The record is a 77-nucleotide RNA from Blautia sp. CAG:257, which matches "Fluoride riboswitch aptamer (crcB RNA motif)" in Rfam. NCBI's taxonomy places the organism under Bacteria, Bacillati, Clostridia, Lachnospiraceae, Blautia. Gene Ontology terms of the family: response to fluoride and positive regulation of gene expression.
RNA sequence: AUUUUAUUGGGGAAUGAAUGUCUCCCUAAGUAUUAAUACUUAAACCGCUUAGAAAAGCUGAUGACUUCUGCAAUCAA
Numbered sequence: 001a002u003u004u005u006a007u008u009g010g011g012g013a014a015u016g017a018a019u020g021u022c023u024c025c026c027u028a029a030g031u032a033u034u035a036a037u038a039c040u041u042a043a044a045c046c047g048c049u050u051a052g053a054a055a056a057g058c059u060g061a062u063g064a065c066u067u068c069u070g071c072a073a074u075c076a077a
Base pairs, nucleotide, nucleotide: 010026011025012024013023016068017067018066020065021064022063047058048057049056050055